[Rfam]
RNA sequence: AUUUUGAAUCAACUGCUAUAUUUGAAAAAUAAUAUAGAGGAAACUCCACGCUUGUACAUUCUGAGAUGAAUGUAGUGAUUGUGCUAGAGAAAAAAAUAACUCUAGGUAUCAUAUAAUGAUAACGACUUGAGUCAAAUCUAAGGAAUAUUUAUUCUAUGAUAAAACUCUUUAAAGUGCCACAGAGACGAGUAACUAGAAAUAGGGAACUGGAACGGGUAAACUCCACAAGCAAGAAACCCAAAUUUGGUAGGGGAACUAGAAAAUCAGAAAAUGAACUGAAUUUUUUGGAUCACAUAAGUGAUAGAUAGAUAGUUGAUGCACAUUUAAUUGUGUUACAGAACGUGGGUUAUGAUA
Numbered sequence: 001a002u003u004u005u006g007a008a009u010c011a012a013c014u015g016c017u018a019u020a021u022u023u024g025a026a027a028a029a030u031a032a033u034a035u036a037g038a039g040g041a042a043a044c045u046c047c048a049c050g051c052u053u054g055u056a057c058a059u060u061c062u063g064a065g066a067u068g069a070a071u072g073u074a075g076u077g078a079u080u081g082u083g084c085u086a087g088a089g090a091a092a093a094a095a096a097u098a099a100c101u102c103u104a105g106g107u108a109u110c111a112u113a114u115a116a117u118g119a120u121a122a123c124g125a126c127u128u129g130a131g132u133c134a135a136a137u138c139u140a141a142g143g144a145a146u147a148u149u150u151a152u153u154c155u156a157u158g159a160u161a162a163a164a165c166u167c168u169u170u171a172a173a174g175u176g177c178c179a180c181a182g183a184g185a186c187g188a189g190u191a192a193c194u195a196g197a198a199a200u201a202g203g204g205a206a207c208u209g210g211a212a213c214g215g216g217u218a219a220a221c222u223c224c225a226c227a228a229g230c231a232a233g234a235a236a237c238c239c240a241a242a243u244u245u246g247g248u249a250g251g252g253g254a255a256c257u258a259g260a261a262a263a264u265c266a267g268a269a270a271a272u273g274a275a276c277u278g279a280a281u282u283u284u285u286u287g288g289a290u291c292a293c294a295u296a297a298g299u300g301a302u303a304g305a306u307a308g309a310u311a312g313u314u315g316a317u318g319c320a321c322a323u324u325u326a327a328u329u330g331u332g333u334u335a336c337a338g339a340a341c342g343u344g345g346g347u348u349a350u351g352a353u354a
Stems, first nucleotide, its partner, number of pairs: 004354001007350001008317007016037006042348003046345005051233005056073006079228005084105006106123001107121006124223002129167003136160003142155005174221002176217003190206001193202003237252003256288007289302005319332004